Overview
L31-Actinobacteria ribosomal protein leader: a 47-nucleotide RNA sequence from Streptomyces sp. LaPpAH-202.

[Rfam]
RNA sequence: UCGGCCCCGGUUCACGUGUGCGCAAACCGCGUGUGCGACCCGGCGCC
Numbered sequence: 001u002c003g004g005c006c007c008c009g010g011u012u013c014a015c016g017u018g019u020g021c022g023c024a025a026a027c028c029g030c031g032u033g034u035g036c037g038a039c040c041c042g043g044c045g046c047c
Stems, first nucleotide, its partner, number of pairs: 003047003007043004015037009

Rfam classes the family as a cis-regulatory leader. NCBI's taxonomy places the organism under Bacteria, Bacillati, Actinomycetes, Kitasatosporales, Streptomyces.